About this RNA:
The record is a 108-nucleotide sequence from Plutella xylostella, which matches "mir-8517 microRNA precursor family" in Rfam. The match comes from Rfam's covariance-model search (96 bits). Gene Ontology terms of the family: miRNA-mediated post-transcriptional gene silencing and RISC complex.

RNA sequence: UUACUGAACGCUUUAGCUAUUGAACUGUUCUUACACUCUCUGACAGAGAACAUUUUUUUCUUUGACAGAGAGGGACAAAACAGUUCAGUAGUUAAAGCCUCCACUAAC
Numbered sequence: 001u002u003a004c005u006g007a008a009c010g011c012u013u014u015a016g017c018u019a020u021u022g023a024a025c026u027g028u029u030c031u032u033a034c035a036c037u038c039u040c041u042g043a044c045a046g047a048g049a050a051c052a053u054u055u056u057u058u059u060c061u062u063u064g065a066c067a068g069a070g071a072g073g074g075a076c077a078a079a080a081c082a083g084u085u086c087a088g089u090a091g092u093u094a095a096a097g098c099c100u101c102c103a104c105u106a107a108c
Stems, first nucleotide, its partner, number of pairs: 001107003005103002011097018029069003034064002049059002052056001